[Rfam]
Shown here is a 189-nucleotide sequence from Endozoicomonas numazuensis, a member of the family "Group II catalytic intron D1-D4-3". Gene Ontology term of the family: Group II intron splicing. Lineage of the source: Bacteria > Pseudomonadota > Gammaproteobacteria > Endozoicomonadaceae > Endozoicomonas. The match comes from Rfam's covariance-model search (127 bits).
RNA sequence: UCCAUCGCGAGGUGGAAUCUGAAGAAAGCCGAAGGCAAAACACUGGCCCGACGGACAGGAAUCGCAUAGUAGGCGGUCGCAGUGGGUAAGAAGGCCAUUAUCUUCAAUACCCAAAGGGCACAAGAGCCCGAUACUUGCACGGAAACUGCGGACGUAUAUGCGGCGGGUAUAAGUGGGAAGGUCGCGCGC
Numbered sequence: 001u002c003c004a005u006c007g008c009g010a011g012g013u014g015g016a017a018u019c020u021g022a023a024g025a026a027a028g029c030c031g032a033a034g035g036c037a038a039a040a041c042a043c044u045g046g047c048c049c050g051a052c053g054g055a056c057a058g059g060a061a062u063c064g065c066a067u068a069g070u071a072g073g074c075g076g077u078c079g080c081a082g083u084g085g086g087u088a089a090g091a092a093g094g095c096c097a098u099u100a101u102c103u104u105c106a107a108u109a110c111c112c113a114a115a116g117g118g119c120a121c122a123a124g125a126g127c128c129c130g131a132u133a134c135u136u137g138c139a140c141g142g143a144a145a146c147u148g149c150g151g152a153c154g155u156a157u158a159u160g161c162g163g164c165g166g167g168u169a170u171a172a173g174u175g176g177g178a179a180g181g182u183c184g185c186g187c188g189c
Stems, first nucleotide, its partner, number of pairs: 001016006028189002035182002041175004046168005062163006073155003077151007084112004090105004